Necrovirus cap-independent translation element: an 80-nucleotide sequence from Alphanecrovirus nicotianae.
The literature on the family includes a 2013 paper in J Virol by Nicholson et al., "Tombusvirus Y-shaped translational enhancer forms a complex with eIF4F and can be functionally replaced by heterologous translational enhancers".
The match comes from Rfam's covariance-model search (78 bits).
RNA sequence: UGGAGACGGAGACGGAUCCUGGGAAACAGGCUUGACGGGCGGGGGGUGGUGCCCCCGACGACGCAUCACUCCGGAUACCA
Dot-bracket structure: ((((..(((((.((...((((.....)))).......(.((((..........)))).)..)).....)))))..).)))